RNA sequence: UUUGGAUCAAAGAUUGAAACUUUAUACUGCGUUAUCUAUCUGAUCAUACCUUCUUUGCGAGGAACUGAAGAUAACACUAAUCUCAUACUGAGAUCCAGU
Numbered sequence: 001u002u003u004g005g006a007u008c009a010a011a012g013a014u015u016g017a018a019a020c021u022u023u024a025u026a027c028u029g030c031g032u033u034a035u036c037u038a039u040c041u042g043a044u045c046a047u048a049c050c051u052u053c054u055u056u057g058c059g060a061g062g063a064a065c066u067g068a069a070g071a072u073a074a075c076a077c078u079a080a081u082c083u084c085a086u087a088c089u090g091a092g093a094u095c096c097a098g099u
Stems, first nucleotide, its partner, number of pairs: 002098006
RNA: Small nucleolar RNA snoR27
Organism: Hibiscus syriacus